[Rfam]
RNA sequence: AGGGAGUAGAUACCCGGUUUUUCAUAAGUUGGCAAAACUGGCACAAAAUCUCCCAAUAUCAAAAGUGCUUUCUGAUGACUAAAACUUAUUAAGGACCAGGUUUUGGACAGUUACGGAGCAGACAACA
Numbered sequence: 001a002g003g004g005a006g007u008a009g010a011u012a013c014c015c016g017g018u019u020u021u022u023c024a025u026a027a028g029u030u031g032g033c034a035a036a037a038c039u040g041g042c043a044c045a046a047a048a049u050c051u052c053c054c055a056a057u058a059u060c061a062a063a064a065g066u067g068c069u070u071u072c073u074g075a076u077g078a079c080u081a082a083a084a085c086u087u088a089u090u091a092a093g094g095a096c097c098a099g100g101u102u103u104u105g106g107a108c109a110g111u112u113a114c115g116g117a118g119c120a121g122a123c124a125a126c127a
Stems, first nucleotide, its partner, number of pairs: 002054005014041004021034001022032002066120006079106003084101004